[Rfam]
RNA sequence: CGAGAUAACCAUCGUCAAGGAACUAGGCAAACUAGCUCCGUAACUUCGGAAGAAGGAGUACCGUAGUAAUGAUGUAGCAAUACAUUGUGAAUCGGUCGCAGUGAAAUGGGCUUCGUGACUGUUUAACAAAAACUUAGGGCUCUGCUGAAAUCACAAGAUGAUGUAUAGGGCCUGAUGCCUGCCCGGUGCCGGAAGGUCACGGGGAUCUGUCAGCCGCAAGGCGAAGCAGUGAACUUAAGCCCCGGUAAACGGCGGCGGUAACUAUAACCGUCCUAAGGUAGCGAAAUUCCUUGUCGGGUAAGUUCCGACCUGCACGAAUGGCAUAACAAAGAAGCCGCUGUCUCGACGAUGGGCUCG
Numbered sequence: 001c002g003a004g005a006u007a008a009c010c011a012u013c014g015u016c017a018a019g020g021a022a023c024u025a026g027g028c029a030a031a032c033u034a035g036c037u038c039c040g041u042a043a044c045u046u047c048g049g050a051a052g053a054a055g056g057a058g059u060a061c062c063g064u065a066g067u068a069a070u071g072a073u074g075u076a077g078c079a080a081u082a083c084a085u086u087g088u089g090a091a092u093c094g095g096u097c098g099c100a101g102u103g104a105a106a107u108g109g110g111c112u113u114c115g116u117g118a119c120u121g122u123u124u125a126a127c128a129a130a131a132a133c134u135u136a137g138g139g140c141u142c143u144g145c146u147g148a149a150a151u152c153a154c155a156a157g158a159u160g161a162u163g164u165a166u167a168g169g170g171c172c173u174g175a176u177g178c179c180u181g182c183c184c185g186g187u188g189c190c191g192g193a194a195g196g197u198c199a200c201g202g203g204g205a206u207c208u209g210u211c212a213g214c215c216g217c218a219a220g221g222c223g224a225a226g227c228a229g230u231g232a233a234c235u236u237a238a239g240c241c242c243c244g245g246u247a248a249a250c251g252g253c254g255g256c257g258g259u260a261a262c263u264a265u266a267a268c269c270g271u272c273c274u275a276a277g278g279u280a281g282c283g284a285a286a287u288u289c290c291u292u293g294u295c296g297g298g299u300a301a302g303u304u305c306c307g308a309c310c311u312g313c314a315c316g317a318a319u320g321g322c323a324u325a326a327c328a329a330a331g332a333a334g335c336c337g338c339u340g341u342c343u344c345g346a347c348g349a350u351g352g353g354c355u356c357g
Stems, first nucleotide, its partner, number of pairs: 001357004009352008018343003035059005044049001060096004071086006097101001109336006116328002121133002137173008145163001150159003176323004181253003186250002188246005195241003201235002207229004213222002254272006273277001283310001293309006
A member of the RNA family "Bacterial large subunit ribosomal RNA" from Elusimicrobium minutum, 357 nucleotides of a longer RNA. Pairs were carried over by alignment from the consensus structure, which is taken from published work. It is one of the family's seed sequences. The organism belongs to Elusimicrobium minutum, within Bacteria.